[Rfam]
RNA sequence: ACUCAAUGAUUGUCGACUAAGUUCGCAACAUCCGUGUUGCAACGUUGAUGUCAGCACAUCCGUGUGCA
Numbered sequence: 001a002c003u004c005a006a007u008g009a010u011u012g013u014c015g016a017c018u019a020a021g022u023u024c025g026c027a028a029c030a031u032c033c034g035u036g037u038u039g040c041a042a043c044g045u046u047g048a049u050g051u052c053a054g055c056a057c058a059u060c061c062g063u064g065u066g067c068a
Stems, first nucleotide, its partner, number of pairs: 011050007025040005054067004
The family of this 68-nucleotide sequence from Paraliobacillus sp. PM-2 is "Bacillaceae-1 RNA". It scores 44 bits against the family's covariance model. The source organism's lineage runs through Bacteria, Bacillota, Bacilli, Bacillaceae and Paraliobacillus. The base pairs follow the family's consensus structure, which is taken from published work.